[Rfam]
RNA sequence: UUUUGAAAAAGGCAAAGUUGUCGAAAGGCAGCGACGCAAAGCUACGGGUCUAAGGUACAUAGUACUACGAUCGCCGGGUUGCCAAA
Numbered sequence: 001u002u003u004u005g006a007a008a009a010a011g012g013c014a015a016a017g018u019u020g021u022c023g024a025a026a027g028g029c030a031g032c033g034a035c036g037c038a039a040a041g042c043u044a045c046g047g048g049u050c051u052a053a054g055g056u057a058c059a060u061a062g063u064a065c066u067a068c069g070a071u072c073g074c075c076g077g078g079u080u081g082c083c084a085a086a
Stems, first nucleotide, its partner, number of pairs: 012037002017032006040080004045076003048071003055065004
A member of the RNA family "c-di-GMP-I riboswitch aptamer" from Filobacillus milosensis, 86 nucleotides long. Lineage of the source: Bacteria > Bacillati > Bacillota > Caryophanales > Filobacillus.